[Rfam]
RNA sequence: CUUCAACGACCCGAGCCACAGCGGCCGUUCCGGGGCACGGUCCUGCCCGUACGUCGCGAGGAUCGCCUGUGCCUC
Numbered sequence: 001c002u003u004c005a006a007c008g009a010c011c012c013g014a015g016c017c018a019c020a021g022c023g024g025c026c027g028u029u030c031c032g033g034g035g036c037a038c039g040g041u042c043c044u045g046c047c048c049g050u051a052c053g054u055c056g057c058g059a060g061g062a063u064c065g066c067c068u069g070u071g072c073c074u075c
Stems, first nucleotide, its partner, number of pairs: 015025003031071002038065002043060002047056001049054001
RNA: ASpks TB sRNA
Organism: Streptomyces sp. NA04227